[Rfam]
RNA: Archaeal RNase P
Organism: Candidatus Methanoplasma termitum
RNA sequence: AAGAGAUGAAGGGCAGCCGACGGUAGGACAUAGUCCAGCUGAGGAACUUCCCUCCUCCACAGGGCAAGAUGAACCGGGAGAUCGGUAAGGCGAGAGCUUUGGCAAGGGCCCAGAAACGACACAGCCUUGGUUAAGGAUGAUCUGCGGACAGUGACAUUCCCAAGGAUAUGGUGAAACGGCGACACCUCAUCGGAGCAAACUCAUACAGUCGGGAUGACCGCCCGAGACCGGCGGGUAGAGCGCUUAGUUGAAUGCUGCCUGAAACAGAAGAGGGAGUACUAUCAUGACUU
Numbered sequence: 001a002a003g004a005g006a007u008g009a010a011g012g013g014c015a016g017c018c019g020a021c022g023g024u025a026g027g028a029c030a031u032a033g034u035c036c037a038g039c040u041g042a043g044g045a046a047c048u049u050c051c052c053u054c055c056u057c058c059a060c061a062g063g064g065c066a067a068g069a070u071g072a073a074c075c076g077g078g079a080g081a082u083c084g085g086u087a088a089g090g091c092g093a094g095a096g097c098u099u100u101g102g103c104a105a106g107g108g109c110c111c112a113g114a115a116a117c118g119a120c121a122c123a124g125c126c127u128u129g130g131u132u133a134a135g136g137a138u139g140a141u142c143u144g145c146g147g148a149c150a151g152u153g154a155c156a157u158u159c160c161c162a163a164g165g166a167u168a169u170g171g172u173g174a175a176a177c178g179g180c181g182a183c184a185c186c187u188c189a190u191c192g193g194a195g196c197a198a199a200c201u202c203a204u205a206c207a208g209u210c211g212g213g214a215u216g217a218c219c220g221c222c223c224g225a226g227a228c229c230g231g232c233g234g235g236u237a238g239a240g241c242g243c244u245u246a247g248u249u250g251a252a253u254g255c256u257g258c259c260u261g262a263a264a265c266a267g268a269a270g271a272g273g274g275a276g277u278a279c280u281a282u283c284a285u286g287a288c289u290u
Base pairs, nucleotide, nucleotide: 001290002289003288006285007284008283009282010280011279012259013258014257015256016255017254021041022040023039024038046277047276048275050274051273052272053271054270055195056194057193058192060224062222068191069190070189071188072187073086074085075084076083077082087100088099089098090097091096101186102185108180109179122170123169125165126164127163128162129161130160142151143150200240201239202238208232209231210230211229212228